A member of the RNA family "Small nucleolar RNA SNORD79" from Aquarana catesbeiana, 80 nucleotides long. snoRNA U79 or Z22 is found in intron 7 of the gas5 gene in humans and is also present in mice. It is annotated as a C/D-box small nucleolar RNA. Gene Ontology terms of the family: nucleolus and RNA processing. On this family, see Galardi et al., Mol Cell Biol 2002: "Purified box C/D snoRNPs are able to reproduce site-specific 2'-O-methylation of target RNA in vitro". NCBI's taxonomy places the organism under Eukaryota, Eumetazoa, Craniata, Gnathostomata, Aquarana. Rfam 15.1 lists 784 matches to the family in 651 species.
RNA sequence: UGCUGUACAUGAUGACUUGAAAUAAUCAAUGGGAAUCUCUCUGAAUAAGACUGAGGGAAAUCUUCUAUUCUGAUGCAGUG
Numbered sequence: 001u002g003c004u005g006u007a008c009a010u011g012a013u014g015a016c017u018u019g020a021a022a023u024a025a026u027c028a029a030u031g032g033g034a035a036u037c038u039c040u041c042u043g044a045a046u047a048a049g050a051c052u053g054a055g056g057g058a059a060a061u062c063u064u065c066u067a068u069u070c071u072g073a074u075g076c077a078g079u080g
Stems, first nucleotide, its partner, number of pairs: 001080007